[Rfam]
Nucleotides: 069
Stems, first nucleotide, its partner, number of pairs: 001069004007063001010060010024046002027043003
Number, partner (000 for none) and nucleotide at each position: 001069g002068u003067c004066c005000g006000u007063u008000u009000c010060u011059a012058a013057g014056u015055a016054c017053u018052g019051g020000u021000g022000c023000c024046g025045c026000g027043g028042g029041a030000u031000g032000g033000u034000a035000u036000u037000g038000a039000a040000c041029u042028c043027c044000a045025g046024c047000g048000g049000u050000u051019c052018u053017g054016g055015u056014g057013c058012u059011u060010a061000a062000c063007a064000u065000a066004g067003g068002g069001c
Source information:
Shown here is a 69-nucleotide RNA sequence from Elysia chlorotica, a member of the family "mir-252 microRNA precursor family". Pairs were carried over by alignment from the consensus structure, which was predicted with RNAalifold. The family has 44 seed sequences and 422 matches in Rfam 15.1. On this family, see Li et al., BMC Genomics 2009: "Direct sequencing and expression analysis of a large number of miRNAs in Aedes aegypti and a multi-species survey of novel mosquito miRNAs". Rfam links the family to the GO terms RISC complex and miRNA-mediated post-transcriptional gene silencing.